[Rfam]
RNA: DUF805b RNA
Organism: Fluviicola taffensis
RNA sequence: AAUGGGGAAUCCGAAAACCAUAUUUAGAGUAGGAA
Dot-bracket structure: .((((....[[[.....))))..........]]].